[Rfam]
RNA sequence: GCUGGACACGGUGGCUUGUGCCUGUAAUCCAAGCGCCGGGGAGGCUGAGGCUGGCGGAUGGCGUGAGCCUGGGCGUUCUGGGCUGCAGCGAGCUGUGCCGAGCGGGUGUCCGCGCUAAGGCCGGCAUCGAUAUGGUGGUCCUGGGGGAGCCGGGGGACACCAGGUUGACUAAGGAGGGGUGAACCGGCCCAGGUCGGAGACGGAGCAGGUCAAAGCUCCCGUGCCGGUCAAUGGCAGGAUGGCCCCUGUAGCACAGCCCGGGUGAGAGCAGGACUCAGUUUCCC
Numbered sequence: 001g002c003u004g005g006a007c008a009c010g011g012u013g014g015c016u017u018g019u020g021c022c023u024g025u026a027a028u029c030c031a032a033g034c035g036c037c038g039g040g041g042a043g044g045c046u047g048a049g050g051c052u053g054g055c056g057g058a059u060g061g062c063g064u065g066a067g068c069c070u071g072g073g074c075g076u077u078c079u080g081g082g083c084u085g086c087a088g089c090g091a092g093c094u095g096u097g098c099c100g101a102g103c104g105g106g107u108g109u110c111c112g113c114g115c116u117a118a119g120g121c122c123g124g125c126a127u128c129g130a131u132a133u134g135g136u137g138g139u140c141c142u143g144g145g146g147g148a149g150c151c152g153g154g155g156g157a158c159a160c161c162a163g164g165u166u167g168a169c170u171a172a173g174g175a176g177g178g179g180u181g182a183a184c185c186g187g188c189c190c191a192g193g194u195c196g197g198a199g200a201c202g203g204a205g206c207a208g209g210u211c212a213a214a215g216c217u218c219c220c221g222u223g224c225c226g227g228u229c230a231a232u233g234g235c236a237g238g239a240u241g242g243c244c245c246c247u248g249u250a251g252c253a254c255a256g257c258c259c260g261g262g263u264g265a266g267a268g269c270a271g272g273a274c275u276c277a278g279u280u281u282c283c284c
Base pairs, nucleotide, nucleotide: 001045002044003043004023005022007020008019009018010017011016028042029041030040065282066281067280069278070277071276072275073274078271079270080269083266084265086262090258092257093256094255095254096253097252098251102249103248104247105246106245108243109242110238111237114235115234116233117232119229120228121227122226123225124224125223126222127221128167129166130165131164133162134161135160136159137158139156140155141154142153144151145150169173176219177218178217179216180215186211187210188209189208194203195202196201
Source information:
The record is a 284-nucleotide RNA sequence from Rhinoptilus africanus, which matches "Metazoan signal recognition particle RNA" in Rfam. Clan: SRP clan. NCBI's taxonomy places the organism under Eukaryota, Deuterostomia, Gnathostomata, Saurischia, Rhinoptilus. The family has 91 seed sequences and 383,523 matches in Rfam 15.1. Pairs were carried over by alignment from the consensus structure, which is taken from published work.